Source information
The family of this 441-nucleotide part of an RNA from Schizosaccharomyces japonicus is "Eukaryotic large subunit ribosomal RNA". The family's consensus secondary structure is taken from published work. The family has 88 seed sequences and 107,465 matches in Rfam 15.1.
RNA sequence: GGAAGUGGAGUAGCAAAUAUUCAAAUGAGAACUUUGAAGACUGAAGUGGGAAAGGUUCCAUGUGAACAGCAGUUGGACAUGGGUUAGUCGAUCCUAAGAGAUAGGGAAGCUCCGUUUGAAAGUACACGAUUCUUCGUGUCACCUAUCGAAAGGGAAUCCGGUUAAUAUUCCGGAACCAGGAUGUGGAUUCUCCACGGCACGUAAAUGAAGUUGGAGACGUCGGUGGGAGCCCUGGGAAGAGUUCUCUUUUCUUUUUAACAAACCAAUCACCCUGAAAUCGGUUUAUCCGGAGCUAGGGUAUAGUGUUUGGUAGAGCUCAGCGCCUCUGCUGGGUCCGGUGCGCUCUCAACGGCCCUUGAAAAUCCAACGGAAGGAAUAGUUUUCACGCCUGGUCGUACUCAUAACCGCAGCAGGUCUCCAAGGUGAACAGCCUCUAGUUGA
Numbered sequence: 001g002g003a004a005g006u007g008g009a010g011u012a013g014c015a016a017a018u019a020u021u022c023a024a025a026u027g028a029g030a031a032c033u034u035u036g037a038a039g040a041c042u043g044a045a046g047u048g049g050g051a052a053a054g055g056u057u058c059c060a061u062g063u064g065a066a067c068a069g070c071a072g073u074u075g076g077a078c079a080u081g082g083g084u085u086a087g088u089c090g091a092u093c094c095u096a097a098g099a100g101a102u103a104g105g106g107a108a109g110c111u112c113c114g115u116u117u118g119a120a121a122g123u124a125c126a127c128g129a130u131u132c133u134u135c136g137u138g139u140c141a142c143c144u145a146u147c148g149a150a151a152g153g154g155a156a157u158c159c160g161g162u163u164a165a166u167a168u169u170c171c172g173g174a175a176c177c178a179g180g181a182u183g184u185g186g187a188u189u190c191u192c193c194a195c196g197g198c199a200c201g202u203a204a205a206u207g208a209a210g211u212u213g214g215a216g217a218c219g220u221c222g223g224u225g226g227g228a229g230c231c232c233u234g235g236g237a238a239g240a241g242u243u244c245u246c247u248u249u250u251c252u253u254u255u256u257a258a259c260a261a262a263c264c265a266a267u268c269a270c271c272c273u274g275a276a277a278u279c280g281g282u283u284u285a286u287c288c289g290g291a292g293c294u295a296g297g298g299u300a301u302a303g304u305g306u307u308u309g310g311u312a313g314a315g316c317u318c319a320g321c322g323c324c325u326c327u328g329c330u331g332g333g334u335c336c337g338g339u340g341c342g343c344u345c346u347c348a349a350c351g352g353c354c355c356u357u358g359a360a361a362a363u364c365c366a367a368c369g370g371a372a373g374g375a376a377u378a379g380u381u382u383u384c385a386c387g388c389c390u391g392g393u394c395g396u397a398c399u400c401a402u403a404a405c406c407g408c409a410g411c412a413g414g415u416c417u418c419c420a421a422g423g424u425g426a427a428c429a430g431c432c433u434c435u436a437g438u439u440g441a
Base pairs, nucleotide, nucleotide: 020038021037022036023035024034025033039439040438041437042436048419049418050416053399054398058082059081060080061079062078063077067075068074089395090394091393093153094152098147099146100116101115102114104113105112106111124139125138157174158173159172160171161170177391178390179389180388182387183386184385185384186383187381194202195201196200210368211367212366213365214364215363219353220352221351222350224348225347226346227345228344229343230342232338233337234336235255236254237253238252239251240250259309260308261307262306263305269299270298271297272296273295274294278290279289280288281287316333317332318331319330320329321328322327405414406413421433422432423431424430